[Rfam]
Nucleotides: 094
Base pairs, nucleotide, nucleotide: 002093003092004091005090006089007088008087013041015040016039017038021031022030023029026071027070028069042064043063044062045061047060048059049057050056051055068086073083074082075081
Number, partner (000 for none) and nucleotide at each position: 001000g002093c003092c004091u005090u006089a007088u008087c009000g010000a011000g012000a013041g014000c015040g016039g017038u018000g019000g020000a021031g022030g023029g024000a025000a026071c027070g028069g029023c030022c031021c032000g033000a034000u035000g036000a037000a038017a039016c040015c041013c042064g043063g044062c045061a046000a047060c048059c049057u050056g051055c052000g053000a054000u055051g056050c057049a058000a059048g060047g061045u062044g063043c064042c065000a066000a067000a068086u069028c070027c071026g072000g073083c074082g075081a076000g077000g078000u079000a080000a081075u082074c083073g084000a085000a086068a087008g088007a089006u090005g091004a092003g093002g094000a
Record summary
SAM riboswitch aptamer (S box leader): a 94-nucleotide RNA sequence from Flavonifractor sp. An10. It scores 78 bits against the family's covariance model. Rfam describes the family as follows. The SAM riboswitch is found upstream of a number of genes which code for proteins involved in methionine or cysteine biosynthesis in Gram-positive bacteria. The base pairs follow the family's consensus structure, which is taken from published work. Lineage of the source: Bacteria > Bacillota > Clostridia > Eubacteriales > Flavonifractor.